[Rfam]
RNA sequence: CAAGGCCGUUAACCAGCCAUUAAGCUUUACGGCUGUUUACUAUGGAUAUCCAGUGUUCUGGAUUCUUACCGAGUGGCUGGAGCCACUUCGUUUGACGCCUCCCUGUUAACUUCUGAGAGCCGCUUCCGCGGCUCUUUUUUU
Numbered sequence: 001c002a003a004g005g006c007c008g009u010u011a012a013c014c015a016g017c018c019a020u021u022a023a024g025c026u027u028u029a030c031g032g033c034u035g036u037u038u039a040c041u042a043u044g045g046a047u048a049u050c051c052a053g054u055g056u057u058c059u060g061g062a063u064u065c066u067u068a069c070c071g072a073g074u075g076g077c078u079g080g081a082g083c084c085a086c087u088u089c090g091u092u093u094g095a096c097g098c099c100u101c102c103c104u105g106u107u108a109a110c111u112u113c114u115g116a117g118a119g120c121c122g123c124u125u126c127c128g129c130g131g132c133u134c135u136u137u138u139u140u141u
Stems, first nucleotide, its partner, number of pairs: 003041001005014001016038001023034004049061002071088006094107004115136009
This 141-nucleotide RNA from Borborobacter arsenicus belongs to the Rfam family "Alphaproteobacterial sRNA BjrC1505". By type it is a small RNA. On this family, see Madhugiri et al., RNA Biol 2012: "Small RNAs of the Bradyrhizobium/Rhodopseudomonas lineage and their analysis". The base pairs follow the family's consensus structure. The organism belongs to Borborobacter, within Bacteria.